[Rfam]
RNA sequence: CUGAAGGGUUAUGUCAAGGAGUCGAAUGAGGAGGUAACGCUCUGAAAGGGUCCCCCUGCGUCGAAUAGCACGCUGUUUAGUAUGGAAAAGCGUGUUAUAAGCUUGGCUAAUAGGCGUGAGAAUUUACCGUAACAGUCCGGCUGACGAAAACCUACCCGAUGGCGUGGUGUAAAUCAUGGUCCUUGGGUUGAACAA
Number, nucleotide and partner (000 for none) at each position: 001c000002u000003g000004a000005a000006g000007g000008g000009u000010u000011a000012u000013g000014u000015c000016a000017a000018g053019g052020a051021g000022u049023c048024g000025a000026a000027u000028g000029a000030g000031g043032a000033g041034g040035u000036a000037a000038c000039g000040c034041u033042c000043u031044g000045a000046a000047a000048g023049g022050g000051u020052c019053c018054c187055c186056c185057u000058g000059c000060g000061u106062c105063g104064a103065a098066u097067a096068g095069c094070a093071c092072g091073c090074u089075g000076u087077u086078u085079a000080g000081u000082a000083u000084g000085g078086a077087a076088a000089a074090g073091c072092g071093u070094g069095u068096u067097a066098u065099a000100a000101g000102c000103u064104u063105g062106g061107c000108u000109a000110a000111u000112a000113g183114g182115c000116g180117u179118g000119a000120g000121a000122a174123u173124u172125u171126a170127c169128c146129g145130u144131a000132a000133c000134a142135g141136u000137c000138c000139g000140g000141c135142u134143g000144a130145c129146g128147a000148a000149a000150a168151c167152c166153u000154a165155c164156c000157c162158g000159a000160u000161g000162g157163c000164g155165u154166g152167g151168u150169g127170u126171a125172a124173a123174u122175c000176a000177u000178g000179g117180u116181c000182c114183u113184u000185g056186g055187g054188u000189u000190g000191a000192a000193c000194a000195a000
This 195-nucleotide sequence from Metabacillus arenae belongs to the Rfam family "Group II catalytic intron D1-D4-5". Rfam describes the family as follows. Group II introns are found in rRNA, tRNA and mRNA of organelles in fungi, plants and protists, and also in mRNA in bacteria. The literature on the family includes a 2001 paper in Trends Genet by Bonen and Vogel, "The ins and outs of group II introns". The match comes from Rfam's covariance-model search (99 bits). The family has 139 seed sequences and 720 matches in Rfam 15.1. Pairs were carried over by alignment from the consensus structure.